[Rfam]
RNA sequence: AGUCGCUGAUGAACAGAGUUUAAGAGUAGUGGACAGAAGCGAUUUCUGAGCUUUGAAACUACUGAGGCU
Numbered sequence: 001a002g003u004c005g006c007u008g009a010u011g012a013a014c015a016g017a018g019u020u021u022a023a024g025a026g027u028a029g030u031g032g033a034c035a036g037a038a039g040c041g042a043u044u045u046c047u048g049a050g051c052u053u054u055g056a057a058a059c060u061a062c063u064g065a066g067g068c069u
Base pairs, nucleotide, nucleotide: 001069002068003067004066
The family of this 69-nucleotide RNA from Salarias fasciatus is "Small nucleolar RNA SNORD75". The match comes from Rfam's covariance-model search (51 bits). Gene Ontology terms of the family: RNA processing and nucleolus. The base pairs follow the family's consensus structure, which was predicted with RNAalifold.